The record is an 83-nucleotide RNA sequence from Capsella rubella, which matches "Small nucleolar RNA R21" in Rfam. Lineage of the source: Eukaryota > Viridiplantae > Magnoliopsida > eudicotyledons > Capsella. It scores 84 bits against the family's covariance model.
RNA sequence: AAUCCCAAUGAUGAUUAUGAUUAAAAAAAAAUGUUAAAAGUAGUGACUGAUUUAUCUUGAUUAUACUUCAGCUCUGAGGGAUU
Numbered sequence: 001a002a003u004c005c006c007a008a009u010g011a012u013g014a015u016u017a018u019g020a021u022u023a024a025a026a027a028a029a030a031a032u033g034u035u036a037a038a039a040g041u042a043g044u045g046a047c048u049g050a051u052u053u054a055u056c057u058u059g060a061u062u063a064u065a066c067u068u069c070a071g072c073u074c075u076g077a078g079g080g081a082u083u
Stems, first nucleotide, its partner, number of pairs: 001083006